[Rfam]
RNA sequence: UUAGGGGGUCGCGACUGGCGCUGACCCCCCGUCCUCCGCCGGGGCGUCAUGAGGCGGACAACCGCCGGGAAGCGAAGUUCGCGCAGGCCGCGCGCCUGGGCCUGCGCU
Dot-bracket structure: ...(((..((((..(([[[[[................................((((....))))..))..))))..)))....(((((..]]]]]..))))).....

This 108-nucleotide RNA sequence from Bailinhaonella thermotolerans belongs to the Rfam family "ZMP/ZTP riboswitch aptamer (pfl RNA motif)". The match comes from Rfam's covariance-model search (40 bits).